Rfam assigns this 93-nucleotide sequence from Vulpes vulpes to the family "mir-8799 microRNA precursor family".
[Rfam]
RNA sequence: CGGGGGAGGCCGGAUCCUGGGCUCUGUCCCCAACAGCCUGGGCUCCAGGGCCUGCAACACUGGAAUCGUGCUCCUGGCGCCACGCAGCUCCCU
Numbered sequence: 001c002g003g004g005g006g007a008g009g010c011c012g013g014a015u016c017c018u019g020g021g022c023u024c025u026g027u028c029c030c031c032a033a034c035a036g037c038c039u040g041g042g043c044u045c046c047a048g049g050g051c052c053u054g055c056a057a058c059a060c061u062g063g064a065a066u067c068g069u070g071c072u073c074c075u076g077g078c079g080c081c082a083c084g085c086a087g088c089u090c091c092c093u
Stems, first nucleotide, its partner, number of pairs: 002092005009085002012081002016077002019074003023070001025068002027064002030062001040052001042051003
Annotation
NCBI's taxonomy places the organism under Eukaryota, Gnathostomata, Sarcopterygii, Amniota, Vulpes.